[Rfam]
RNA sequence: GUGCUGCAAUUACAUAUCCUACAAAGCAACCUAUACCAGGAACCACCUCCUUGGCCUGCCCGAUCUCCCUCGGGCAGGCCGAUUU
Numbered sequence: 001g002u003g004c005u006g007c008a009a010u011u012a013c014a015u016a017u018c019c020u021a022c023a024a025a026g027c028a029a030c031c032u033a034u035a036c037c038a039g040g041a042a043c044c045a046c047c048u049c050c051u052u053g054g055c056c057u058g059c060c061c062g063a064u065c066u067c068c069c070u071c072g073g074g075c076a077g078g079c080c081g082a083u084u085u
Base pairs, nucleotide, nucleotide: 038051039050040049041048053080054079055078056077057076058075059074060073061072062071063070